[Rfam]
RNA sequence: GCUGGUGUGGGUGAUGACUGAACUUUUUUCCCCAUCAGAGCGACAGUGUUGAUUACUCAUCACUCUAGCCAGGUCUUGUCUGAUGCACCAGC
Numbered sequence: 001g002c003u004g005g006u007g008u009g010g011g012u013g014a015u016g017a018c019u020g021a022a023c024u025u026u027u028u029u030c031c032c033c034a035u036c037a038g039a040g041c042g043a044c045a046g047u048g049u050u051g052a053u054u055a056c057u058c059a060u061c062a063c064u065c066u067a068g069c070c071a072g073g074u075c076u077u078g079u080c081u082g083a084u085g086c087a088c089c090a091g092c
Base pairs, nucleotide, nucleotide: 001092002091003090004089005088006087007086008085009084
RNA: Small nucleolar SNORD12/SNORD106